[Rfam]
RNA sequence: AAACAUCGAAGAGGUUGCAACUCAUGAAGAGUAGGCUGUAUGAGCAAGGCAUUGCUAUGAUGCAGUCGAAAGGUAUGGUUGCCGAAAGGUUUGACUGGCAAGUCAAAAGCUUGGGCUAAUGGAGAAAAUCCCUUAGACUGUCGCUAUUAAGUUUUAGCGGUGCGCUUUGUUGGAA
Numbered sequence: 001a002a003a004c005a006u007c008g009a010a011g012a013g014g015u016u017g018c019a020a021c022u023c024a025u026g027a028a029g030a031g032u033a034g035g036c037u038g039u040a041u042g043a044g045c046a047a048g049g050c051a052u053u054g055c056u057a058u059g060a061u062g063c064a065g066u067c068g069a070a071a072g073g074u075a076u077g078g079u080u081g082c083c084g085a086a087a088g089g090u091u092u093g094a095c096u097g098g099c100a101a102g103u104c105a106a107a108a109g110c111u112u113g114g115g116c117u118a119a120u121g122g123a124g125a126a127a128a129u130c131c132c133u134u135a136g137a138c139u140g141u142c143g144c145u146a147u148u149a150a151g152u153u154u155u156a157g158c159g160g161u162g163c164g165c166u167u168u169g170u171u172g173g174a175a
Stems, first nucleotide, its partner, number of pairs: 007169005017082006024076003034067008086112003090107007113139002116136004121131003141160006

Rfam assigns this 175-nucleotide sequence from Lactovum miscens to the family "Lysine riboswitch aptamer". Rfam's curators write: Riboswitches are metabolite binding domains within certain messenger RNAs that serve as precision sensors for their corresponding targets. A search with the family's covariance model found it, with a score of 98 bits.